[Rfam]
RNA sequence: AACGGCGGGGAAAGAAGACCCUGUUGAGCUUGACUCUAGUCCGACUUUGUGAAACAACUUAAGAGGUGUAGCAUAAGUGGGAGCUUCGGCGACAGUGAAAUACCACUACUUUUAACGUUGUUUUACUUAUUCCAUGAGGUGGAGGCGGGUUUCGGCCCUGCUUCUAGCCCCAAGCUUUAUGCGAUCCAGGUGGAAGACAUUGUCAGGUGGGGAGUUUGGCUGGGGCGGCACAUCUGUUAAAAGAUAACGCAGGUGUCCUAAGAUGAGCUCAAAGAGAACAGAAAUCUCUUGUGGAACAAAAGGGUAAAAGCUCAUUUGAUUUUGGCUUUCAGUACUAGCACAAACUGUGAAAGCAUGGCCUAUCGAUCCUUUAGCUUGUCGGAAUUUGACGCUAGAGGUGUCAGAAAAGUUACCACAGGGAUAACUGGCUUGUGGCAGCCAAGCGUUCAUAGCGACGUUGCUUUUUGAUCCUUCGAUGUCGGCUCUUCCUAUCAUUGCGAAGCAGAAUUCGCCAAGUGUAGGAUUGUUCACCCACCAAUAGGGAACGUGAGCUGGGUUUAGACCGUCGUGAGACAGGUUAGUUUUACCCUACCGUUGGCC
Numbered sequence: 001a002a003c004g005g006c007g008g009g010g011a012a013a014g015a016a017g018a019c020c021c022u023g024u025u026g027a028g029c030u031u032g033a034c035u036c037u038a039g040u041c042c043g044a045c046u047u048u049g050u051g052a053a054a055c056a057a058c059u060u061a062a063g064a065g066g067u068g069u070a071g072c073a074u075a076a077g078u079g080g081g082a083g084c085u086u087c088g089g090c091g092a093c094a095g096u097g098a099a100a101u102a103c104c105a106c107u108a109c110u111u112u113u114a115a116c117g118u119u120g121u122u123u124u125a126c127u128u129a130u131u132c133c134a135u136g137a138g139g140u141g142g143a144g145g146c147g148g149g150u151u152u153c154g155g156c157c158c159u160g161c162u163u164c165u166a167g168c169c170c171c172a173a174g175c176u177u178u179a180u181g182c183g184a185u186c187c188a189g190g191u192g193g194a195a196g197a198c199a200u201u202g203u204c205a206g207g208u209g210g211g212g213a214g215u216u217u218g219g220c221u222g223g224g225g226c227g228g229c230a231c232a233u234c235u236g237u238u239a240a241a242a243g244a245u246a247a248c249g250c251a252g253g254u255g256u257c258c259u260a261a262g263a264u265g266a267g268c269u270c271a272a273a274g275a276g277a278a279c280a281g282a283a284a285u286c287u288c289u290u291g292u293g294g295a296a297c298a299a300a301a302g303g304g305u306a307a308a309a310g311c312u313c314a315u316u317u318g319a320u321u322u323u324g325g326c327u328u329u330c331a332g333u334a335c336u337a338g339c340a341c342a343a344a345c346u347g348u349g350a351a352a353g354c355a356u357g358g359c360c361u362a363u364c365g366a367u368c369c370u371u372u373a374g375c376u377u378g379u380c381g382g383a384a385u386u387u388g389a390c391g392c393u394a395g396a397g398g399u400g401u402c403a404g405a406a407a408a409g410u411u412a413c414c415a416c417a418g419g420g421a422u423a424a425c426u427g428g429c430u431u432g433u434g435g436c437a438g439c440c441a442a443g444c445g446u447u448c449a450u451a452g453c454g455a456c457g458u459u460g461c462u463u464u465u466u467g468a469u470c471c472u473u474c475g476a477u478g479u480c481g482g483c484u485c486u487u488c489c490u491a492u493c494a495u496u497g498c499g500a501a502g503c504a505g506a507a508u509u510c511g512c513c514a515a516g517u518g519u520a521g522g523a524u525u526g527u528u529c530a531c532c533c534a535c536c537a538a539u540a541g542g543g544a545a546c547g548u549g550a551g552c553u554g555g556g557u558u559u560a561g562a563c564c565g566u567c568g569u570g571a572g573a574c575a576g577g578u579u580a581g582u583u584u585u586a587c588c589c590u591a592c593c594g595u596u597g598g599c600c
Base pairs, nucleotide, nucleotide: 001596002595003594004593005592008590009589010588012585013584020419021418022417023416025415026414027411028410029409030408031407033215034214035213036212040207041206043204044203045202049126050125051124052123053122054121055120056119057118058117059115060114061113062112063111064110065109076107077106078105079104080103083090084089130195131194132193133192134191140188141187142186143185148157149156174182175181218231219229220228221227232254233253234252235251236250237249257358258357263315264314265313266312267311268310269295270294272290273289274288275287276286277285296305297304320344321343322342325339326338327337346355347354348353369397370396371395372394373393374392377391378390379389380388428469430467432466434462435461436460437459438458439457443453444452480555481553482552483551484550485547486544487543488542489541490540493518494517497512498511499510500509501508521533522532524530561579562578563577564576565574566573567572
Eukaryotic large subunit ribosomal RNA: a 600-nucleotide part of an RNA from Micromonas commoda. Taxonomically the source falls in Micromonas (Eukaryota, Viridiplantae, Mamiellophyceae, Mamiellaceae). The base pairs follow the family's consensus structure, which is taken from published work.